RNA sequence: ACAACAACGAUAACAACCAGAACUCAUAACAAGAACAAAACGUAACGGCUCUAGCAGAACAACAACAAGACGGCAGAGACGAAGCUAACUGAUUCUUUUGGAGAGGAGUUGCCAAGCUGCACCAGCAGCACCACCAGGCAGAGAACAACAAAAACUGCACAAGCAGAAGCCCGAACUGGUUGGAAAAGGUAACAUCAGCGGCCAAAGGUAUCCGUUUGCUCUUGGCUCCCAGUGAAGGAGCAUAUCCCGAAAAGCGUUGGCUCAAGGGACGGCCCUAAAACAAAAACAAUAGGUCCGAUCAAUAAUAAUAAAAGCACGCAACAUUACUUAAGAGGGAGCUUCGGCUCCCUCUGCUGCGUCAUGUCUACUAUUGCUUUUUCCAUU
Numbered sequence: 001a002c003a004a005c006a007a008c009g010a011u012a013a014c015a016a017c018c019a020g021a022a023c024u025c026a027u028a029a030c031a032a033g034a035a036c037a038a039a040a041c042g043u044a045a046c047g048g049c050u051c052u053a054g055c056a057g058a059a060c061a062a063c064a065a066c067a068a069g070a071c072g073g074c075a076g077a078g079a080c081g082a083a084g085c086u087a088a089c090u091g092a093u094u095c096u097u098u099u100g101g102a103g104a105g106g107a108g109u110u111g112c113c114a115a116g117c118u119g120c121a122c123c124a125g126c127a128g129c130a131c132c133a134c135c136a137g138g139c140a141g142a143g144a145a146c147a148a149c150a151a152a153a154a155c156u157g158c159a160c161a162a163g164c165a166g167a168a169g170c171c172c173g174a175a176c177u178g179g180u181u182g183g184a185a186a187a188g189g190u191a192a193c194a195u196c197a198g199c200g201g202c203c204a205a206a207g208g209u210a211u212c213c214g215u216u217u218g219c220u221c222u223u224g225g226c227u228c229c230c231a232g233u234g235a236a237g238g239a240g241c242a243u244a245u246c247c248c249g250a251a252a253a254g255c256g257u258u259g260g261c262u263c264a265a266g267g268g269a270c271g272g273c274c275c276u277a278a279a280a281c282a283a284a285a286a287c288a289a290u291a292g293g294u295c296c297g298a299u300c301a302a303u304a305a306u307a308a309u310a311a312a313a314g315c316a317c318g319c320a321a322c323a324u325u326a327c328u329u330a331a332g333a334g335g336g337a338g339c340u341u342c343g344g345c346u347c348c349c350u351c352u353g354c355u356g357c358g359u360c361a362u363g364u365c366u367a368c369u370a371u372u373g374c375u376u377u378u379u380c381c382a383u384u
Base pairs, nucleotide, nucleotide: 046081047080049078050077051076052075096207097206098205099204100203110200111199112198131182133180134179135178136177137176155166156165157164158163225241226240227239228238229237265369266368268366271296272295274293314359315358317356332351333350334349335348336347337346338345339344